The record is a 104-nucleotide RNA from Pseudooceanicola pacificus, which matches "TPP riboswitch aptamer (THI element)" in Rfam. Rfam 15.1 lists 16,130 matches to the family in 8,693 species. The base pairs follow the family's consensus structure, which is taken from published work.
RNA sequence: CGCCUUACCUCGGGGUGCCCUCAUGCAGGGCUGAGAUGCCAUCCGGCGAACCCGUUGAACCUGAACCGGUUAAGACCGGCGGAGGGAAGGUUGUGCUGAAGCAU
Numbered sequence: 001c002g003c004c005u006u007a008c009c010u011c012g013g014g015g016u017g018c019c020c021u022c023a024u025g026c027a028g029g030g031c032u033g034a035g036a037u038g039c040c041a042u043c044c045g046g047c048g049a050a051c052c053c054g055u056u057g058a059a060c061c062u063g064a065a066c067c068g069g070u071u072a073a074g075a076c077c078g079g080c081g082g083a084g085g086g087a088a089g090g091u092u093g094u095g096c097u098g099a100a101g102c103a104u
Stems, first nucleotide, its partner, number of pairs: 007091004011054004016048001017031005038047003060085003066079004